The record is a 67-nucleotide sequence from Azomonas macrocytogenes, which matches "Repression of heat shock gene expression (ROSE) element" in Rfam.
Rfam classes the family as an RNA thermoregulator.
It scores 62 bits against the family's covariance model.
RNA sequence: UACGGGAUGCCGAAAAUCGGGUCCCGCAAUGACUGACUCGCUGAUGUUCAGGAGAUUGAAAAUGACA
Numbered sequence: 001u002a003c004g005g006g007a008u009g010c011c012g013a014a015a016a017u018c019g020g021g022u023c024c025c026g027c028a029a030u031g032a033c034u035g036a037c038u039c040g041c042u043g044a045u046g047u048u049c050a051g052g053a054g055a056u057u058g059a060a061a062a063u064g065a066c067a
Stems, first nucleotide, its partner, number of pairs: 001028001003026006010020003032056001037054003041051004
Background:
A reference for the family is Krajewski et al. (2013), "Short ROSE-Like RNA Thermometers Control IbpA Synthesis in Pseudomonas Species", PLoS One.